Shown here is a 48-nucleotide RNA, a member of the family "uup RNA".
It is annotated as a cis-regulatory element.
[Rfam]
RNA sequence: GAACCAUGAGCUCCGUGCAAAUCGAGUCGAUGAAGCAUUGUGCGGAGC
Dot-bracket structure: ..........(((((.(((...................))).))))).